Annotation
The family of this 128-nucleotide RNA from Firmicutes bacterium CAG:791 is "Ribosomal protein L10 leader". Pairs were carried over by alignment from the consensus structure, which was predicted with CMfinder. Its family is annotated with regulation of gene expression in the Gene Ontology. The match comes from Rfam's covariance-model search (69 bits). NCBI's taxonomy places the organism under Bacteria, Bacillati, Bacillota.
RNA sequence: UGGUUCAGAUAGAACCAGCCGAAGACAGCAGGUGUCCGCAAGGACGUAAUGCGCAGCAGCCUGCCGAGGAUGAUGAAGUGAAAUUCGAGUCCCUCUGUCAUGCGGCAGAGGGAUUUUUCAUUUAUCUC
Numbered sequence: 001u002g003g004u005u006c007a008g009a010u011a012g013a014a015c016c017a018g019c020c021g022a023a024g025a026c027a028g029c030a031g032g033u034g035u036c037c038g039c040a041a042g043g044a045c046g047u048a049a050u051g052c053g054c055a056g057c058a059g060c061c062u063g064c065c066g067a068g069g070a071u072g073a074u075g076a077a078g079u080g081a082a083a084u085u086c087g088a089g090u091c092c093c094u095c096u097g098u099c100a101u102g103c104g105g106c107a108g109a110g111g112g113a114u115u116u117u118u119c120a121u122u123u124a125u126c127u128c
Base pairs, nucleotide, nucleotide: 028064029063030062031061032060033059034045035044036043090113091112092111093110094109095108096107097106098105099104